[Rfam]
Nucleotides: 077
Base pairs, nucleotide, nucleotide: 002076003075004074005073006072007071
Number, partner (000 for none) and nucleotide at each position: 001000u002076g003075c004074c005073g006072u007071u008000g009000a010000u011000g012000a013000u014000g015000u016000u017000u018000a019000a020000a021000g022000u023000a024000u025000c026000a027000u028000u029000g030000g031000g032000a033000a034000u035000c036000u037000c038000u039000c040000u041000g042000a043000g044000a045000c046000u047000a048000u049000g050000u051000g052000a053000a054000a055000g056000a057000a058000u059000u060000u061000u062000g063000a064000u065000a066000a067000c068000u069000g070000a071007a072006a073005c074004g075003g076002u077000c